[Rfam]
RNA sequence: GAUCAAGGAUGCUAUAAAAUAUUUGCUACUCUUGACCAAAAUGUGACGACAUAAAAUCACCAAGAUCGCUGAGAUC
Numbered sequence: 001g002a003u004c005a006a007g008g009a010u011g012c013u014a015u016a017a018a019a020u021a022u023u024u025g026c027u028a029c030u031c032u033u034g035a036c037c038a039a040a041a042u043g044u045g046a047c048g049a050c051a052u053a054a055a056a057u058c059a060c061c062a063a064g065a066u067c068g069c070u071g072a073g074a075u076c
Base pairs, nucleotide, nucleotide: 001076002075003074004073
A member of the RNA family "Small nucleolar RNA SNORD24" from Achlya hypogyna, 76 nucleotides long. NCBI's taxonomy places the organism under Eukaryota, Sar, Saprolegniomycetes, Saprolegniales, Achlya. A reference for the family is Qu et al. (1995), "U24, a novel intron-encoded small nucleolar RNA with two 12 nt long, phylogenetically conserved complementarities to 28S rRNA", Nucleic Acids Res. Rfam links the family to the GO terms nucleolus and RNA processing. Rfam classes the family as a C/D-box small nucleolar RNA. Rfam 15.1 lists 2,843 matches to the family in 1,188 species.